[Rfam]
RNA: Glycine riboswitch aptamer
Organism: Plantimonas leprariae
RNA sequence: GCGACGCAUGCGGGAGAGACCGGCUUCAACGGCCGGCGCCGAAGGAGCAACCGCCCCGGAAACUCUCAGGCAGAAGGACCGCGCGCCGCCA
Numbered sequence: 001g002c003g004a005c006g007c008a009u010g011c012g013g014g015a016g017a018g019a020c021c022g023g024c025u026u027c028a029a030c031g032g033c034c035g036g037c038g039c040c041g042a043a044g045g046a047g048c049a050a051c052c053g054c055c056c057c058g059g060a061a062a063c064u065c066u067c068a069g070g071c072a073g074a075a076g077g078a079c080c081g082c083g084c085g086c087c088g089c090c091a
Base pairs, nucleotide, nucleotide: 006086007085009083010082011081012080013079020036021035022034023033038071039070040069041067042066045065046064047063051059052058